[Rfam]
RNA sequence: CGGUGCCGAUCUGGUCGGCGCCGAUGAAGUGGAUGUGGGAGUCGACGCCGCCUGCGGUGAGGAUACGCCCCUCGCCGGCGAUCACCUCGGUGGAGGCCCCGAUCAGGAUGUCGACGCCGUCCAUGAUGUCCGGGUUGCCGGCUUUGCCGAUCGCGCUGAUGUGCCCGUCCCGCAGGCCCACAUCCGCCUUGUAGAUCCCUGAGGCGUCCAGGACCACGGCGUUGGUGAUCACGGUGUCCACCACGCCGUCGUCCCGGGUGAGCCGGCCGUUGUGGCCCAUGCCGUCCCG
Numbered sequence: 001c002g003g004u005g006c007c008g009a010u011c012u013g014g015u016c017g018g019c020g021c022c023g024a025u026g027a028a029g030u031g032g033a034u035g036u037g038g039g040a041g042u043c044g045a046c047g048c049c050g051c052c053u054g055c056g057g058u059g060a061g062g063a064u065a066c067g068c069c070c071c072u073c074g075c076c077g078g079c080g081a082u083c084a085c086c087u088c089g090g091u092g093g094a095g096g097c098c099c100c101g102a103u104c105a106g107g108a109u110g111u112c113g114a115c116g117c118c119g120u121c122c123a124u125g126a127u128g129u130c131c132g133g134g135u136u137g138c139c140g141g142c143u144u145u146g147c148c149g150a151u152c153g154c155g156c157u158g159a160u161g162u163g164c165c166c167g168u169c170c171c172g173c174a175g176g177c178c179c180a181c182a183u184c185c186g187c188c189u190u191g192u193a194g195a196u197c198c199c200u201g202a203g204g205c206g207u208c209c210a211g212g213a214c215c216a217c218g219g220c221g222u223u224g225g226u227g228a229u230c231a232c233g234g235u236g237u238c239c240a241c242c243a244c245g246c247c248g249u250c251g252u253c254c255c256g257g258g259u260g261a262g263c264c265g266g267c268c269g270u271u272g273u274g275g276c277c278c279a280u281g282c283c284g285u286c287c288c289g
Stems, first nucleotide, its partner, number of pairs: 001289003008286002012158004016153001017076004023071001031052002034050002037048001039046001057069001077148002081144001085140001090138004095130003104125002106122004110117002163276001165275003170269001172267002175264002177258002185221004190216002201208001224254002230248001234246003

A member of the RNA family "5' ureB small RNA" from Kocuria flava, 289 nucleotides long. Its family is annotated with negative regulation of gene expression in the Gene Ontology. The family's consensus secondary structure was predicted with mfold. On this family, see Wen et al., J Bacteriol 2013: "Helicobacter pylori 5'ureB-sRNA, a cis-encoded antisense small RNA, negatively regulates ureAB expression by transcription termination".